[Rfam]
RNA sequence: GCCCGGAUGAUCCUCAGUGGUCUGGGGUGCAGGCUUCAAACCUGUAGCUGUCUAGCGACAGAGUGGUUCAAUUCCACCUUUCGGGCGACG
Numbered sequence: 001g002c003c004c005g006g007a008u009g010a011u012c013c014u015c016a017g018u019g020g021u022c023u024g025g026g027g028u029g030c031a032g033g034c035u036u037c038a039a040a041c042c043u044g045u046a047g048c049u050g051u052c053u054a055g056c057g058a059c060a061g062a063g064u065g066g067u068u069c070a071a072u073u074c075c076a077c078c079u080u081u082c083g084g085g086c087g088a089c090g
Stems, first nucleotide, its partner, number of pairs: 001086007009078001012027006028046006048061005063077004
Dot-bracket structure: (((((((.(..((((((....))))))((((((.......)))))).(((((....))))).((((.......))))).)))))))....
Notes: The family of this 90-nucleotide sequence is "Selenocysteine transfer RNA". On this family, see Mizutani and Goto, FEBS Lett 2000: "Eukaryotic selenocysteine tRNA has the 9/4 secondary structure". The family's consensus secondary structure is taken from published work. Clan: tRNA clan.